The record is a 190-nucleotide RNA sequence from Aulographum hederae, which matches "U2 spliceosomal RNA" in Rfam. Clan: U2 clan. U2 is a small nuclear RNA (snRNA) component of the spliceosome (involved in pre-mRNA splicing). Complementary binding between U2 snRNA (in an area lying towards the 5' end but 3' to hairpin I) and the branchpoint sequence (BPS) of the intron results the bulging out of an unpaired adenosine, on the BPS, which initiates a nucleophilic attack at the intronic 5' splice site, thus starting the first of two transesterification reactions that mediate splicing. The literature on the family includes a 1997 paper in Nucleic Acids Res by Zwieb, "The uRNA database". Rfam classes the family as a spliceosomal small nuclear RNA. The base pairs follow the family's consensus structure, which is taken from published work. The organism belongs to Aulographum hederae, within Eukaryota.
RNA sequence: AUCCCUACAGCCUUUUGGCUUAGAUCAAGUGUAGUAUCUGUUCUUUUCAGUUUAAUCUCUGAAACGCAACUACGGUUGCAUUCAAUGAUUAUCCUUAUUUUUGCAUCUCGUUCCGUGGCCUCUGGGCUUGCCUAUGUCACGGAGCACCGUGUCGCCUGUAUAACACUGCCUUAGGCCGACGCGAAACAUC
Number, nucleotide and partner (000 for none) at each position: 001a000002u000003c000004c000005c023006u022007a000008c000009a020010g019011c018012c017013u000014u000015u000016u000017g012018g011019c010020u009021u000022a006023g005024a000025u000026c000027a000028a000029g000030u000031g000032u000033a000034g000035u000036a000037u000038c000039u000040g000041u000042u000043c000044u000045u064046u063047u062048c061049a060050g059051u000052u000053u000054a000055a000056u000057c000058u000059c050060u049061g048062a047063a046064a045065c000066g079067c078068a077069a076070c075071u000072a000073c000074g000075g070076u069077u068078g067079c066080a000081u000082u000083c000084a000085a000086u000087g000088a000089u000090u000091a000092u000093c000094c000095u000096u000097a000098u000099u000100u000101u000102u000103g000104c000105a000106u000107c000108u000109c000110g145111u144112u143113c142114c141115g140116u139117g138118g000119c000120c000121u000122c000123u134124g133125g132126g131127c000128u000129u000130g000131c126132c125133u124134a123135u000136g000137u000138c117139a116140c115141g114142g113143a112144g111145c110146a000147c000148c183149g182150u181151g180152u179153c178154g176155c175156c174157u173158g172159u000160a000161u000162a000163a000164c000165a000166c000167u000168g000169c000170c000171u000172u158173a157174g156175g155176c154177c000178g153179a152180c151181g150182c149183g148184a000185a000186a000187c000188a000189u000190c000